RNA sequence: UACCGACAUCAGCGAUUCGUUUUGCGAACCGGCCCCGACAGCGAGAUAGGCGUUCAUGCCCAGCUCUUUCAUCUGCUGUUCGCCAAUGACGCGGGUGGUGACAUUUUUGCUGAAGGCAUCCGCCAGCUGACGCGCCUGUGACGCCAGAUAGGCGGCGUUACAGAUAUUAGGUGGCAUGUUGCCGAGAUCUUUAGC
Numbered sequence: 001u002a003c004c005g006a007c008a009u010c011a012g013c014g015a016u017u018c019g020u021u022u023u024g025c026g027a028a029c030c031g032g033c034c035c036c037g038a039c040a041g042c043g044a045g046a047u048a049g050g051c052g053u054u055c056a057u058g059c060c061c062a063g064c065u066c067u068u069u070c071a072u073c074u075g076c077u078g079u080u081c082g083c084c085a086a087u088g089a090c091g092c093g094g095g096u097g098g099u100g101a102c103a104u105u106u107u108u109g110c111u112g113a114a115g116g117c118a119u120c121c122g123c124c125a126g127c128u129g130a131c132g133c134g135c136c137u138g139u140g141a142c143g144c145c146a147g148a149u150a151g152g153c154g155g156c157g158u159u160a161c162a163g164a165u166a167u168u169a170g171g172u173g174g175c176a177u178g179u180u181g182c183c184g185a186g187a188u189c190u191u192u193a194g195c
Base pairs, nucleotide, nucleotide: 005189006188013031014030016028017027018026019025020024033043035041050059051058062077063076064075078135079134081132082131084129085128087126091123092122093121094120095119096118097117099112100111102109103108136163137162138161140159141158142157143156144155145154167186168185170183171182172181

Rfam assigns this 195-nucleotide sequence from Pantoea agglomerans to the family "Yersinia sRNA 276". By type it is an antisense RNA. A search with the family's covariance model found it, with a score of 203 bits.